[Rfam]
Background:
Shown here is a 467-nucleotide sequence from Botrytis elliptica, a member of the family "RNase MRP". Rfam classes the family as a ribozyme. Pairs were carried over by alignment from the consensus structure, which is taken from published work.

RNA sequence: UUCUCGCUCAAAGAAUCGCAUUCGAAGCACACAAACAGAAAUAUCUUCAUCGAUGUUUCAAUUUACUCUUAUGCUUUGGGAGAAAGUCCCCGGACACCCUUCUUUCUAAAAGUUAGGAUUGCGGAAACGCGCCGCCAUAGAAGCACUUGCGGCUUCUCUUCUACCAAUUCUUUACCUUUAAUUUCAUCCAUCCUUUUGCCGUUAUUACCAUUGCCACGAGGCUUCUUGAAAAUUGGAUUCGGAGCAUGGGAGACCACAUGGAUGAAGAUAUGAGUCCGAGCUCUUGUGUAAUGUUUCCAACUGACUUGAAGAAGAGUGGUGAUGGGAGGUAGAAGACAUGUUCCUGAUUGGGGUGGGAGUGUUAAUGGUAGUCGAGGCUUUUUCGUCGAGAUCGAUAGUUAUGCGAUUGCUUUCCUUUGCUGCAAAGCUGGGAAAGUAACUCGAUGGGGCUUAUUCUUGAUGCGAGA
Dot-bracket structure: .((((((((((..((((((..(((((((.........(((((((........))))))).............)))))).)...[[[.[[[[............................((((....))))...............................................................................................................................................................(.(....(.(((.((((...................................(((.....)))...)))).........))).)...).)......................)))))).((((((...............)))))).........]]]]]]]....)))).))))))
Clan: RNaseP clan.